[Rfam]
RNA sequence: UCCAGUGGUAGUCAGCUGUCCAGGGCAAUACUGUGCCUGUGGCGGUGUUACACUGCUGGGAGAUAAAAAUCAGUCAUGUCUUCUGGCUCUUGUCACCGUUCUGGUGGCAGCUGAUGCCAUGAAGAAAUGACGUGGUGCUUCCCUGAGAGUGUGCUGAGGGUUUCAUUUCACUCUUCAGUGCUAGUCCGGAAGCAUACAUA
Numbered sequence: 001u002c003c004a005g006u007g008g009u010a011g012u013c014a015g016c017u018g019u020c021c022a023g024g025g026c027a028a029u030a031c032u033g034u035g036c037c038u039g040u041g042g043c044g045g046u047g048u049u050a051c052a053c054u055g056c057u058g059g060g061a062g063a064u065a066a067a068a069a070u071c072a073g074u075c076a077u078g079u080c081u082u083c084u085g086g087c088u089c090u091u092g093u094c095a096c097c098g099u100u101c102u103g104g105u106g107g108c109a110g111c112u113g114a115u116g117c118c119a120u121g122a123a124g125a126a127a128u129g130a131c132g133u134g135g136u137g138c139u140u141c142c143c144u145g146a147g148a149g150u151g152u153g154c155u156g157a158g159g160g161u162u163u164c165a166u167u168u169c170a171c172u173c174u175u176c177a178g179u180g181c182u183a184g185u186c187c188g189g190a191a192g193c194a195u196a197c198a199u200a
Stems, first nucleotide, its partner, number of pairs: 001060009011051002015046006021039004068133001073131004079125004084119004090113001092111001094106004135195008151181003155177006